[Rfam]
The record is a 72-nucleotide RNA from Crocodylus porosus, which matches "Mammalian CPEB3 ribozyme" in Rfam. Its family is annotated with RNA nuclease activity in the Gene Ontology.
RNA sequence: AGAGUUUGGGGUCACAGCAGAAGCGCUCAUGGUGCAGCCAUGUCAGAUUCCAACAAAUCUGAGAAUUUUGCU
Numbered sequence: 001a002g003a004g005u006u007u008g009g010g011g012u013c014a015c016a017g018c019a020g021a022a023g024c025g026c027u028c029a030u031g032g033u034g035c036a037g038c039c040a041u042g043u044c045a046g047a048u049u050c051c052a053a054c055a056a057a058u059c060u061g062a063g064a065a066u067u068u069u070g071c072u
Base pairs, nucleotide, nucleotide: 010039011038012037016072017071018070019069020068021067022066023035024034025033044061045060046059047058048057049056